[Rfam]
RNA sequence: AGUUAACACUCUGGGGCCAGUGAUUGAAACUGUUUGACACAAUUUGAACUUGAAGUCUAACUUAUUCUGGUAUUCUCUCCUUUCUGAGACAAGCCAUUGUAUAGAUUUAAACAUA
Numbered sequence: 001a002g003u004u005a006a007c008a009c010u011c012u013g014g015g016g017c018c019a020g021u022g023a024u025u026g027a028a029a030c031u032g033u034u035u036g037a038c039a040c041a042a043u044u045u046g047a048a049c050u051u052g053a054a055g056u057c058u059a060a061c062u063u064a065u066u067c068u069g070g071u072a073u074u075c076u077c078u079c080c081u082u083u084c085u086g087a088g089a090c091a092a093g094c095c096a097u098u099g100u101a102u103a104g105a106u107u108u109a110a111a112c113a114u115a
Stems, first nucleotide, its partner, number of pairs: 010047002012041002015038001017036001019034004053108007063101003068096004076089004